[Rfam]
RNA sequence: AACUUACAAGGCGAUGGAGUUCGCCUCAACCCGUGCUACGGUAAUGACUCCUACUACUCA
Numbered sequence: 001a002a003c004u005u006a007c008a009a010g011g012c013g014a015u016g017g018a019g020u021u022c023g024c025c026u027c028a029a030c031c032c033g034u035g036c037u038a039c040g041g042u043a044a045u046g047a048c049u050c051c052u053a054c055u056a057c058u059c060a
Base pairs, nucleotide, nucleotide: 010025011024012023013022016051017050018049019048020047021046032040033039

Rfam assigns this 60-nucleotide RNA sequence from Allolucifera butyrica to the family "Fluoride riboswitch aptamer (crcB RNA motif)".
It scores 44 bits against the family's covariance model.
Lineage of the source: Bacteria > Bacillati > Negativicutes > Veillonellales > Allolucifera.